Shown here is a 94-nucleotide sequence from Anopheles darlingi, a member of the family "mir-283 microRNA precursor family". Its family is annotated with RISC complex and miRNA-mediated post-transcriptional gene silencing in the Gene Ontology. The literature on the family includes a 2010 paper in Genome Biol Evol by Marco et al., "Functional shifts in insect microRNA evolution". The organism belongs to argyritarsis series, within Eukaryota. The match comes from Rfam's covariance-model search (82 bits).
RNA sequence: CGUUCGACUGAAAGGUAAAUAUCAGCUGGUAAUUCUAGGCUAUCUAAACUUCGUGCACCCCGGAAUUUCAGCUGAUAUCCACUUUUCCGUUGAU
Number, nucleotide and partner (000 for none) at each position: 001c000002g000003u000004u000005c000006g000007a000008c000009u000010g000011a086012a085013a084014g083015g082016u081017a000018a000019a078020u077021a076022u075023c074024a073025g072026c071027u070028g069029g068030u000031a000032a066033u065034u064035c063036u062037a000038g060039g059040c000041u000042a000043u000044c000045u000046a000047a000048a000049c000050u000051u000052c000053g000054u000055g000056c000057a000058c000059c039060c038061c000062g036063g035064a034065a033066u032067u000068u029069c028070a027071g026072c025073u024074g023075a022076u021077a020078u019079c000080c000081a016082c015083u014084u013085u012086u011087c000088c000089g000090u000091u000092g000093a000094u000